[Rfam]
RNA sequence: GCUGUGGUUUAGGUAGUUUCAUGUUGUUGGGAUGAAGUUUAGCUCGGCAACCCGAAACUGCCUGAGUCACGUC
Numbered sequence: 001g002c003u004g005u006g007g008u009u010u011a012g013g014u015a016g017u018u019u020c021a022u023g024u025u026g027u028u029g030g031g032a033u034g035a036a037g038u039u040u041a042g043c044u045c046g047g048c049a050a051c052c053c054g055a056a057a058c059u060g061c062c063u064g065a066g067u068c069a070c071g072u073c
Base pairs, nucleotide, nucleotide: 003071004070005069006068007067008066009065010064011063012062013061014060015059016058017057018056019055023051024050025049026048027047028046029045030044031043

mir-196 microRNA precursor family: a 73-nucleotide RNA from Grantiella picta. The literature on the family includes a 2003 paper in RNA by Lagos-Quintana et al., "New microRNAs from mouse and human". A search with the family's covariance model found it, with a score of 72 bits. Gene Ontology terms of the family: RISC complex and gene silencing by miRNA. NCBI's taxonomy places the organism under Eukaryota, Eumetazoa, Tetrapoda, Archelosauria, Grantiella.